About this RNA
This 131-nucleotide sequence from Vitis rotundifolia belongs to the Rfam family "MIR845_2 microRNA precursor family". Lineage of the source: Eukaryota > Streptophytina > eudicotyledons > Vitales > Vitis. Pairs were carried over by alignment from the consensus structure, which was predicted with WAR. Rfam links the family to the GO terms RISC complex and miRNA-mediated post-transcriptional gene silencing. The match comes from Rfam's covariance-model search (135 bits).

[Rfam]
RNA sequence: AGAACACACAUUAAUUAUCCUUGGGGUCAUGGGAUAAACAAAAACCCUGUAAAAUCAAAUUAGCACACCCUCGAAUGGUUCUAGCACGAUUACUAACCUAUGGCUCUAAUACCAGUUGAUAAGAAAACCUG
Numbered sequence: 001a002g003a004a005c006a007c008a009c010a011u012u013a014a015u016u017a018u019c020c021u022u023g024g025g026g027u028c029a030u031g032g033g034a035u036a037a038a039c040a041a042a043a044a045c046c047c048u049g050u051a052a053a054a055u056c057a058a059a060u061u062a063g064c065a066c067a068c069c070c071u072c073g074a075a076u077g078g079u080u081c082u083a084g085c086a087c088g089a090u091u092a093c094u095a096a097c098c099u100a101u102g103g104c105u106c107u108a109a110u111a112c113c114a115g116u117u118g119a120u121a122a123g124a125a126a127a128c129c130u131g
Stems, first nucleotide, its partner, number of pairs: 010120007022108012048086002053080002056077002060073001062071002